[Rfam]
RNA: Small nucleolar RNA SNORA61
Organism: Tupaia belangeri
RNA sequence: ACUCUUCAGUUCCCCUUCCCAUCAGACCUGAGCUCUCUUCUUGGUGGUCCUAAAAGGACAAGUAAUACUAGAGCUGGCCUUGUGAUGUUGCAGUCUGAUAUUUAACUUGGUGGCUGGUUUCAAACACAC
Numbered sequence: 001a002c003u004c005u006u007c008a009g010u011u012c013c014c015c016u017u018c019c020c021a022u023c024a025g026a027c028c029u030g031a032g033c034u035c036u037c038u039u040c041u042u043g044g045u046g047g048u049c050c051u052a053a054a055a056g057g058a059c060a061a062g063u064a065a066u067a068c069u070a071g072a073g074c075u076g077g078c079c080u081u082g083u084g085a086u087g088u089u090g091c092a093g094u095c096u097g098a099u100a101u102u103u104a105a106c107u108u109g110g111u112g113g114c115u116g117g118u119u120u121c122a123a124a125c126a127c128a129c
Stems, first nucleotide, its partner, number of pairs: 003057004019047005025040002074117006090106001